[Rfam]
RNA sequence: GGAUAUGAGGGUGACCUGGCUGUGAGAUCUGAUAUGCCAUUGAUUGAUAGGCCAUGGGUUGAUCUGACUGAUCUGGCUAGCUUAGGCAGGUGUUCCCUUUCUUCCUUGACAUUCCAUGUGUGCUCCUCCUGAUGCUGUGUGCUUGGUUACCGAGGACAGCCUCUGCAGCAGGCACAGUUCAUUGGCCAGGGGUGAGGGGCAGCUGUGCUCCUCUGCUGGAAGCUCUAAGUAAGCUCAAGGUCUGUUUGCAGAUGAAUAUAGGGUAGUCAAGCAUCCAAUACUGUGGACACAUCCAAAUGAGCAGCAUGAGACUGCAUGAAGCAGUCU
Numbered sequence: 001g002g003a004u005a006u007g008a009g010g011g012u013g014a015c016c017u018g019g020c021u022g023u024g025a026g027a028u029c030u031g032a033u034a035u036g037c038c039a040u041u042g043a044u045u046g047a048u049a050g051g052c053c054a055u056g057g058g059u060u061g062a063u064c065u066g067a068c069u070g071a072u073c074u075g076g077c078u079a080g081c082u083u084a085g086g087c088a089g090g091u092g093u094u095c096c097c098u099u100u101c102u103u104c105c106u107u108g109a110c111a112u113u114c115c116a117u118g119u120g121u122g123c124u125c126c127u128c129c130u131g132a133u134g135c136u137g138u139g140u141g142c143u144u145g146g147u148u149a150c151c152g153a154g155g156a157c158a159g160c161c162u163c164u165g166c167a168g169c170a171g172g173c174a175c176a177g178u179u180c181a182u183u184g185g186c187c188a189g190g191g192g193u194g195a196g197g198g199g200c201a202g203c204u205g206u207g208c209u210c211c212u213c214u215g216c217u218g219g220a221a222g223c224u225c226u227a228a229g230u231a232a233g234c235u236c237a238a239g240g241u242c243u244g245u246u247u248g249c250a251g252a253u254g255a256a257u258a259u260a261g262g263g264u265a266g267u268c269a270a271g272c273a274u275c276c277a278a279u280a281c282u283g284u285g286g287a288c289a290c291a292u293c294c295a296a297a298u299g300a301g302c303a304g305c306a307u308g309a310g311a312c313u314g315c316a317u318g319a320a321g322c323a324g325u326c327u
Base pairs, nucleotide, nucleotide: 001115002114003113006108007107008106009105010104011103013100014099018097019096024094025093027091028090029089030088031087033085035080037076038075039074042073043072044071045070046068048066049065050064051063123177124176127172128171129146130145131144132143134142135141147168148167154164155163156162202272203271204270208266209265211263212262213261214260215259223254226251229249230248231247232246233245295327297325299322301315302314303313304312
The family of this 327-nucleotide RNA sequence from Anthoscopus minutus is "7SK RNA". The literature on the family includes a 2002 paper in Curr Biol by Blencowe, "Transcription: surprising role for an elusive small nuclear RNA". 7SK was discovered as an abundant small nuclear RNA in the mid-70s but a possible function has only recently been suggested. Two independent studies have found that 7SK RNA binds the CDK9/cyclin T complex (known as elongation factor P-TEFb). P-TEFb activates transcription by phosphorylating the C-terminal domain of RNA polymerase II. This process is negatively regulated by the 7SK RNP. The secondary structure of 7SK RNA shown here was proposed by Wasserman and Steitz on the basis of chemical modification and enzymatic cleavage experiments. This family contains a number of annotated pseudogenes and 7SK derived repeats. The threshold is artificially high to minimise the pseudogene count. It is annotated as a non-coding RNA gene. Rfam 15.1 lists 49,373 matches to the family in 668 species. The source organism's lineage runs through Eukaryota, Opisthokonta, Amniota, Sauria and Anthoscopus. Its Rfam clan is "7SK clan".